[Rfam]
RNA sequence: AAUGGCAAGUGAUGAGUAUUUUAUCUUAUCACAUACAAGAUCAAUCAGUGUUGACAACCAAUCUCUAUUUGUUACCUGAUGCCGCC
Dot-bracket structure: ..(((((........................................................................)))))..
Numbered sequence: 001a002a003u004g005g006c007a008a009g010u011g012a013u014g015a016g017u018a019u020u021u022u023a024u025c026u027u028a029u030c031a032c033a034u035a036c037a038a039g040a041u042c043a044a045u046c047a048g049u050g051u052u053g054a055c056a057a058c059c060a061a062u063c064u065c066u067a068u069u070u071g072u073u074a075c076c077u078g079a080u081g082c083c084g085c086c
Stems, first nucleotide, its partner, number of pairs: 003084005